[Rfam]
RNA sequence: GCAUUGCGAAGAAGUGCGAGGUUGCUGACCCACUGAAAAGCGUUGUCAUGGGUGAGGUCAGGUAAUUCGCAUGGAGUAUGUUUAUCUAGAAUAAACGA
Dot-bracket structure: .............(((.(((....(((((...........................)))))....))).)))......((((..(.......))))).
The record is a 98-nucleotide RNA from Firmicutes bacterium M10-2, which matches "S10-Clostridia ribosomal protein leader" in Rfam. A reference for the family is Eckert and Weinberg (2020), "Discovery of 20 novel ribosomal leader candidates in bacteria and archaea", BMC Microbiol. The organism belongs to Bacillota, within Bacteria.